[Rfam]
A member of the RNA family "PyrR binding site" from Halalkalibacter hemicellulosilyticus, 111 nucleotides long. Rfam classes the family as a cis-regulatory element. Taxonomically the source falls in Halalkalibacter hemicellulosilyticus (Bacteria, Bacillota, Bacilli, Bacillaceae). The match comes from Rfam's covariance-model search (55 bits). This family represents the PyrR binding site and terminator structure. This RNA structure is found upstream of a variety of genes involved in pyrimidine biosynthesis and transport.
RNA sequence: AGAUCCUUUUAAAAGAAGUACAGAGAGACUUCAAAAGGGGUUGUUUUGAAGAGGGGACUCCCUCUUUCAUUUCUAAUACCCUGAGAAGCUCACUCUCAGGGUAUUUUUUUA
Numbered sequence: 001a002g003a004u005c006c007u008u009u010u011a012a013a014a015g016a017a018g019u020a021c022a023g024a025g026a027g028a029c030u031u032c033a034a035a036a037g038g039g040g041u042u043g044u045u046u047u048g049a050a051g052a053g054g055g056g057a058c059u060c061c062c063u064c065u066u067u068c069a070u071u072u073c074u075a076a077u078a079c080c081c082u083g084a085g086a087a088g089c090u091c092a093c094u095c096u097c098a099g100g101g102u103a104u105u106u107u108u109u110u111a
Stems, first nucleotide, its partner, number of pairs: 004039006015032005043072001046069001048067008075105012